Record summary: The record is a 143-nucleotide RNA sequence from Methylocystis sp. B8, which matches "Alphaproteobacterial sRNA BjrC1505" in Rfam.
RNA sequence: AGCGGGUGUUAACCCUAUAUUAAUAAUUUGUCUUUUAGUUUCGAUGUAUCCCUUCAGUGGGAUGUCCGAGUGGCUUCUUCUCCACUCGUCCUUGAUGCCUCCCUGUCAAGAAGCCUUGAGAGCCGCUUUGCGGCUCUCUUUUU
Number, nucleotide and partner (000 for none) at each position: 001a045002g000003c043004g042005g015006g014007u000008g000009u000010u000011a000012a000013c000014c006015c005016u000017a000018u000019a000020u000021u037022a036023a035024u000025a033026a000027u000028u000029u000030g000031u000032c000033u025034u000035u023036u022037a021038g000039u000040u000041u000042c004043g003044a000045u001046g000047u000048a000049u062050c061051c060052c059053u000054u000055c000056a000057g000058u000059g052060g051061g050062a049063u000064g000065u000066c000067c000068g087069a086070g085071u084072g083073g082074c000075u000076u000077c000078u000079u000080c000081u000082c073083c072084a071085c070086u069087c068088g000089u000090c000091c000092u000093u000094g107095a106096u105097g104098c000099c000100u000101c000102c000103c000104u097105g096106u095107c094108a000109a000110g000111a000112a000113g000114c000115c000116u000117u000118g138119a137120g136121a135122g134123c133124c132125g131126c130127u000128u000129u000130g126131c125132g124133g123134c122135u121136c120137u119138c118139u000140u000141u000142u000143u000
The base pairs follow the family's consensus structure.
Taxonomically the source falls in Methylocystis (Bacteria, Pseudomonadati, Hyphomicrobiales, Methylocystaceae).